[Rfam]
RNA sequence: UGGCCGAAUGUGAGGAUUGGAGGGAAUUAAACAAGAUUGCUUUGUUCUCUUUUUACUGUUUAAUUUCCUCCAAUAUCUCAUGUCUGACCA
Numbered sequence: 001u002g003g004c005c006g007a008a009u010g011u012g013a014g015g016a017u018u019g020g021a022g023g024g025a026a027u028u029a030a031a032c033a034a035g036a037u038u039g040c041u042u043u044g045u046u047c048u049c050u051u052u053u054u055a056c057u058g059u060u061u062a063a064u065u066u067c068c069u070c071c072a073a074u075a076u077c078u079c080a081u082g083u084c085u086g087a088c089c090a
Stems, first nucleotide, its partner, number of pairs: 005086002008083001011080004016074006023067008032058002

The family of this 90-nucleotide RNA sequence from Populus trichocarpa is "MIR2275 microRNA precursor family".
Lineage of the source: Eukaryota > Viridiplantae > Malpighiales > Salicaceae > Populus.
Its family is annotated with RISC complex and miRNA-mediated post-transcriptional gene silencing in the Gene Ontology.
The match comes from Rfam's covariance-model search (62 bits).